Source information
RNase MRP: a 229-nucleotide sequence from Cephalotus follicularis. Pairs were carried over by alignment from the consensus structure, which is taken from published work. It scores 72 bits against the family's covariance model. Lineage of the source: Eukaryota > Magnoliopsida > Pentapetalae > Cephalotaceae > Cephalotus. The literature on the family includes a 2005 paper in Nucleic Acids Res by Piccinelli et al., "Identification and analysis of ribonuclease P and MRP RNA in a broad range of eukaryotes".

RNA sequence: CUGACACUGGAUGAUGUGGUUGGGCCGGAUUCAGCCCAGGAAAUUCCCCGGGCCUUUAAAUGCAGAGAUGCAUUGGUUGGGAAACCAAGAACUUCGAUAUUGGAAAUCCAUCUCCACGUGUGGAGCCGUAUGGAUUUUCAACGAAGUGUUUGGCCGAUGUUAUAACAACAGUUAUUCACAUGUAAUCCAAUUCUGGAUUAAACUGAACGGGGCUUAUGUUCCAGUGUCU
Number, nucleotide and partner (000 for none) at each position: 001c000002u000003g228004a227005c226006a225007c224008u223009g222010g221011a220012u000013g000014a181015u180016g179017u178018g177019g176020u000021u000022g037023g036024g035025c034026c000027g032028g000029a000030u000031u000032c027033a000034g025035c024036c023037c022038a000039g000040g000041a000042a215043a214044u000045u000046c212047c211048c210049c209050g000051g000052g000053c000054c000055u000056u000057u000058a000059a000060a000061u072062g071063c070064a069065g000066a000067g000068a000069u064070g063071c062072a061073u088074u087075g086076g085077u084078u083079g000080g000081g000082a000083a078084a077085c076086c075087a074088a073089g000090a150091a149092c148093u000094u000095c000096g000097a000098u145099a000100u000101u000102g139103g138104a137105a136106a000107u000108c133109c132110a131111u130112c000113u000114c000115c000116a000117c000118g126119u125120g000121u000122g000123g000124a000125g119126c118127c000128g000129u000130a111131u110132g109133g108134a000135u000136u105137u104138u103139c102140a000141a000142c000143g000144a000145a098146g000147u000148g092149u091150u090151u000152g000153g000154c000155c000156g000157a000158u000159g000160u000161u000162a000163u000164a000165a000166c000167a000168a000169c000170a000171g000172u000173u000174a000175u000176u019177c018178a017179c016180a015181u014182g000183u200184a199185a198186u197187c196188c195189a000190a000191u000192u000193c000194u000195g188196g187197a186198u185199u184200a183201a000202a000203c000204u000205g000206a000207a000208c000209g049210g048211g047212g046213c000214u043215u042216a000217u000218g000219u000220u011221c010222c009223a008224g007225u006226g005227u004228c003229u000